RNA: Archaeal large subunit ribosomal RNA, nucleotides 10 to 541
RNA sequence: CUACUUUGCCAUCUGGUGGAUAGCUCGGCUCGAGAACCGAAGAAGGACGCGCCAAGCUGCGAUAAGCCUCAGGGAGCUGCAUGGAAGCCAAGAACUGAGGAUCUCCUAAUGGGAAUCCCUUCACAAUUGCCUUUGCGCAAUGGGGAACGUCGGGAACUGAAACAUCUUAGUACCGACAGGAAAAGAAAGCAAACCGCGAUGUCGUUAGUAACGGCGAGUGAAGACGACACAGUCCAAACCGAAGCCCUCACGGGCAAUGUGGUGUUCGGACUGACCACCAUCGACCAAUCAUCGACGAGAAGUCUUCUGGAACGAAGCGUGAUACAGGGUGACAACCCCGUAUCGUCGACGAGCGGUCGUGGGUCAACUCCAGAGUAGCGGGGGUCGGAUAUCCCUCGUCAACAUGGCUGGCAUCCUCAGCCAAGACUAAACAUUCCUCGAGACCGAUAGCGAACAAGUAGCGUGAGCGAACGCUGAAAAGCACUCCGAGAAGGACCGUGCAAUAGAGCUUGAAAUCAGGUGGCGAUGGAAC
Numbered sequence: 001c002u003a004c005u006u007u008g009c010c011a012u013c014u015g016g017u018g019g020a021u022a023g024c025u026c027g028g029c030u031c032g033a034g035a036a037c038c039g040a041a042g043a044a045g046g047a048c049g050c051g052c053c054a055a056g057c058u059g060c061g062a063u064a065a066g067c068c069u070c071a072g073g074g075a076g077c078u079g080c081a082u083g084g085a086a087g088c089c090a091a092g093a094a095c096u097g098a099g100g101a102u103c104u105c106c107u108a109a110u111g112g113g114a115a116u117c118c119c120u121u122c123a124c125a126a127u128u129g130c131c132u133u134u135g136c137g138c139a140a141u142g143g144g145g146a147a148c149g150u151c152g153g154g155a156a157c158u159g160a161a162a163c164a165u166c167u168u169a170g171u172a173c174c175g176a177c178a179g180g181a182a183a184a185g186a187a188a189g190c191a192a193a194c195c196g197c198g199a200u201g202u203c204g205u206u207a208g209u210a211a212c213g214g215c216g217a218g219u220g221a222a223g224a225c226g227a228c229a230c231a232g233u234c235c236a237a238a239c240c241g242a243a244g245c246c247c248u249c250a251c252g253g254g255c256a257a258u259g260u261g262g263u264g265u266u267c268g269g270a271c272u273g274a275c276c277a278c279c280a281u282c283g284a285c286c287a288a289u290c291a292u293c294g295a296c297g298a299g300a301a302g303u304c305u306u307c308u309g310g311a312a313c314g315a316a317g318c319g320u321g322a323u324a325c326a327g328g329g330u331g332a333c334a335a336c337c338c339c340g341u342a343u344c345g346u347c348g349a350c351g352a353g354c355g356g357u358c359g360u361g362g363g364u365c366a367a368c369u370c371c372a373g374a375g376u377a378g379c380g381g382g383g384g385u386c387g388g389a390u391a392u393c394c395c396u397c398g399u400c401a402a403c404a405u406g407g408c409u410g411g412c413a414u415c416c417u418c419a420g421c422c423a424a425g426a427c428u429a430a431a432c433a434u435u436c437c438u439c440g441a442g443a444c445c446g447a448u449a450g451c452g453a454a455c456a457a458g459u460a461g462c463g464u465g466a467g468c469g470a471a472c473g474c475u476g477a478a479a480a481g482c483a484c485u486c487c488g489a490g491a492a493g494g495a496c497c498g499u500g501c502a503a504u505a506g507a508g509c510u511u512g513a514a515a516u517c518a519g520g521u522g523g524c525g526a527u528g529g530a531a532c
Base pairs, nucleotide, nucleotide: 007525008524009523010522011521012520013519014518015517016516022510023474024473027445028444029442030441031440032439033438034437035435036434044107045106046105047104048061049060050059067100068099069098070097071096072095076088077087078086111120112119113118126141127140128139129138130137148179149177150176151175152174153173159166160165189197190196201228202227203226204225205224211219212218231428232427233426234425239262240261241260244255245254246253247252272366273365274364275363282359283358284357285356296345297344298343302318304317305316306315307314321325327339328338329337378399379398380397381396382395383394384393406422407421408420409419410418461468462467